[Rfam]
RNA sequence: AGCGAGGCUAGAGUUACACCUUUACAAACCAUUGUACUGGUGUGCUAGAGUGCUCGCAGAGUGAACAUCUUAGCCUAUUCAUUGGCUGUAGUCUCUGAUGACCCAGCCAACCACCAGCUCAGAAACAUGA
Numbered sequence: 001a002g003c004g005a006g007g008c009u010a011g012a013g014u015u016a017c018a019c020c021u022u023u024a025c026a027a028a029c030c031a032u033u034g035u036a037c038u039g040g041u042g043u044g045c046u047a048g049a050g051u052g053c054u055c056g057c058a059g060a061g062u063g064a065a066c067a068u069c070u071u072a073g074c075c076u077a078u079u080c081a082u083u084g085g086c087u088g089u090a091g092u093c094u095c096u097g098a099u100g101a102c103c104c105a106g107c108c109a110a111c112c113a114c115c116a117g118c119u120c121a122g123a124a125a126c127a128u129g130a
Stems, first nucleotide, its partner, number of pairs: 002057005007051003012046002015044006023036004069122002072119003082110004087105002091102003
The family of this 130-nucleotide sequence from Esox lucius is "Small nucleolar RNA SNORA3/SNORA45 family".
Rfam's curators write: The members of this family belong to the H/ACA class of snoRNAs which are thought to guide the sites of modification of uridines to pseudouridines. This family includes mouse snoMBI-28 and human homologues ACA3 (SNORA3) and ACA3-2 (SNORA45).
A search with the family's covariance model found it, with a score of 76 bits.